Rfam assigns this 88-nucleotide RNA from Xenopus laevis to the family "mir-204 microRNA precursor family".
Taxonomically the source falls in Xenopus (Eukaryota, Tetrapoda, Batrachia, Pipidae).

RNA sequence: UUGUGACCCAUGGGGUUCCCUUUGUCAUCCUAUGCCUGAGAAUACUGGAGAGGCAGGGACAGCAAGGGGACGCUCAGAUGUCACCACU
Numbered sequence: 001u002u003g004u005g006a007c008c009c010a011u012g013g014g015g016u017u018c019c020c021u022u023u024g025u026c027a028u029c030c031u032a033u034g035c036c037u038g039a040g041a042a043u044a045c046u047g048g049a050g051a052g053g054c055a056g057g058g059a060c061a062g063c064a065a066g067g068g069g070a071c072g073c074u075c076a077g078a079u080g081u082c083a084c085c086a087c088u
Base pairs, nucleotide, nucleotide: 017070018069019068020067021066022065024063025062028059029058030057031056034054035053036052037051